[Rfam]
RNA sequence: CCGUCCGUCCCGUGGGACGCCGUGUCCACCCCGGCCGAACCCCGGUUACUCUGGCCCCGUGCACCCUGUGCCCAGGGCGCAAAGCCGACAGCCGUCGCAUCCCAGGGAGUCCCUUCAUG
Numbered sequence: 001c002c003g004u005c006c007g008u009c010c011c012g013u014g015g016g017a018c019g020c021c022g023u024g025u026c027c028a029c030c031c032c033g034g035c036c037g038a039a040c041c042c043c044g045g046u047u048a049c050u051c052u053g054g055c056c057c058c059g060u061g062c063a064c065c066c067u068g069u070g071c072c073c074a075g076g077g078c079g080c081a082a083a084g085c086c087g088a089c090a091g092c093c094g095u096c097g098c099a100u101c102c103c104a105g106g107g108a109g110u111c112c113c114u115u116c117a118u119g
Stems, first nucleotide, its partner, number of pairs: 060081003065076004084098002087096003
About this RNA
Rfam assigns this 119-nucleotide sequence from Streptomyces termitum to the family "Streptomyces-metH RNA". A search with the family's covariance model found it, with a score of 103 bits. The organism belongs to Streptomyces, within Bacteria.